Shown here is a 190-nucleotide sequence from Streptomyces ruber, a member of the family "c-di-AMP riboswitch aptamer (ydaO/yuaA leader)".
[Rfam]
Nucleotides: 190
Stems, first nucleotide, its partner, number of pairs: 005173002010028002029170006039074001075155003083131003134149004
Number, partner (000 for none) and nucleotide at each position: 001000u002000c003000a004000a005173c006172c007000g008000a009000c010028u011027c012000a013000c014000u015000c016000a017000c018000g019000c020000a021000g022000g023000g024000c025000a026000g027011g028010a029170g030169c031168g032167g033166g034165g035000g036000a037000c038000c039074c040000a041000g042000g043000c044000a045000a046000g047000c048000c049000g050000c051000c052000g053000g054000u055000c056000c057000g058000u059000g060000c061000c062000a063000c064000g065000g066000a067000c068000c069000g070000g071000c072000u073000a074039g075155g076154g077153g078000u079000g080000a081000a082000g083131c084130c085129g086000c087000g088000c089000a090000c091000c092000g093000c094000a095000c096000u097000c098000g099000u100000c101000g102000c103000u104000c105000g106000u107000c108000g109000u110000u111000c112000u113000c114000g115000c116000g117000c118000a119000g120000u121000g122000c123000c124000g125000u126000g127000c128000a129085c130084g131083g132000c133000c134149g135148g136147g137146c138000a139000c140000c141000u142000u143000u144000c145000c146137g147136c148135c149134c150000g151000a152000a153077c154076c155075c156000g157000a158000c159000a160000g161000c162000u163000c164000a165034c166033c167032u168031c169030g170029c171000a172006g173005g174000c175000g176000c177000c178000g179000g180000a181000g182000a183000g184000g185000a186000a187000a188000c189000g190000c
This family represents a conserved RNA structure found upstream of the ydaO and yuaA genes in Bacillus subtilis and related genes in other bacteria. The ydaO/yuaA element is thought to act as a genetic 'off' switch for the ydaO and yuaA genes in its native state. It is believed that the element may be triggered during osmotic shock leading to activation of ydaO, a predicted amino acid transporter gene, and members of the yuaA-yubG operon which code for KtrA and KtrB K+ transporters.